[Rfam]
Rhodo-rpoB RNA: a 96-nucleotide RNA sequence from Oceanicola granulosus. Rfam classes the family as a cis-regulatory element. The organism belongs to Oceanicola granulosus, within Bacteria. The sequence is in the family's curated seed alignment.
RNA sequence: GGGUCGGGAGGCAGCCGGUGGGACGGCAGCCAGGUAUUGACCCCGUGACAACCCAUCUCGGAUGAGGAUCCCGCCGUGGCCCAGCGGCAGAGUGUC
Numbered sequence: 001g002g003g004u005c006g007g008g009a010g011g012c013a014g015c016c017g018g019u020g021g022g023a024c025g026g027c028a029g030c031c032a033g034g035u036a037u038u039g040a041c042c043c044c045g046u047g048a049c050a051a052c053c054c055a056u057c058u059c060g061g062a063u064g065a066g067g068a069u070c071c072c073g074c075c076g077u078g079g080c081c082c083a084g085c086g087g088c089a090g091a092g093u094g095u096c
Base pairs, nucleotide, nucleotide: 001043002042003041004040005039010031011030012029014027015026016025017024067096068095069094071092073088074087075086076085
Dot-bracket structure: (((((....(((.((((......)))).))).......))))).......................(((.(.((((........))))...).)))